[Rfam]
RNA sequence: GGUAUUGUUUGCCCCACAAUAAAGCCCCGGAAACUUUUAGUUGGUGUCGAACAAACACAGA
Numbered sequence: 001g002g003u004a005u006u007g008u009u010u011g012c013c014c015c016a017c018a019a020u021a022a023a024g025c026c027c028c029g030g031a032a033a034c035u036u037u038u039a040g041u042u043g044g045u046g047u048c049g050a051a052c053a054a055a056c057a058c059a060g061a
Base pairs, nucleotide, nucleotide: 006057007056008055009054010053011052016041017040019038021037022036023035024034
RNA: Ribosomal protein L13 leader
Organism: Nicoliella spurrieriana